Bacterial small signal recognition particle RNA: a 97-nucleotide RNA from Pseudolactococcus hodotermopsidis. The family's RNA type in Rfam is non-coding RNA gene. Taxonomically the source falls in Pseudolactococcus (Bacteria, Bacilli, Lactobacillales, Streptococcaceae). The signal recognition particle (SRP) is a universally conserved ribonucleoprotein involved in the co-translational targeting of proteins to membranes.

RNA sequence: UAAUAGUAAUGAGGCAAUAGUCAGUCUAUGAAGUGGGUCAGAUGCGGAAGCAAGCAGCCCUAAGUAGGGUGGGUAUGUGCCUUUUUUGUUUUUUAUA
Numbered sequence: 001u002a003a004u005a006g007u008a009a010u011g012a013g014g015c016a017a018u019a020g021u022c023a024g025u026c027u028a029u030g031a032a033g034u035g036g037g038u039c040a041g042a043u044g045c046g047g048a049a050g051c052a053a054g055c056a057g058c059c060c061u062a063a064g065u066a067g068g069g070u071g072g073g074u075a076u077g078u079g080c081c082u083u084u085u086u087u088g089u090u091u092u093u094u095a096u097a
Stems, first nucleotide, its partner, number of pairs: 003092001005090003009085001011083004015077001017076003021072002025068005035060004043052003